[Rfam]
RNA sequence: ACAAAAUUCUUUUUGCAAUGCAUUCCUGAAUGUGUAAUGUAAGUGUGUUGGGAACAUUUUUCAUCCAUAGUUUUGUAUC
Numbered sequence: 001a002c003a004a005a006a007u008u009c010u011u012u013u014u015g016c017a018a019u020g021c022a023u024u025c026c027u028g029a030a031u032g033u034g035u036a037a038u039g040u041a042a043g044u045g046u047g048u049u050g051g052g053a054a055c056a057u058u059u060u061u062c063a064u065c066c067a068u069a070g071u072u073u074u075g076u077a078u079c
Base pairs, nucleotide, nucleotide: 004073005072006071007070008069010067014063015062017060018059020057023054024053025052026051027050029049030048031047032046033045034044

Rfam assigns this 79-nucleotide RNA from Rhinolophus ferrumequinum to the family "mir-450 microRNA precursor family". Rfam 15.1 lists 374 matches to the family in 128 species. Lineage of the source: Eukaryota > Opisthokonta > Teleostomi > Eutheria > Rhinolophus. Its family is annotated with RISC complex and miRNA-mediated post-transcriptional gene silencing in the Gene Ontology. The literature on the family includes a 2010 paper in Mol Hum Reprod by Ahn et al., "MicroRNA transcriptome in the newborn mouse ovaries determined by massive parallel sequencing".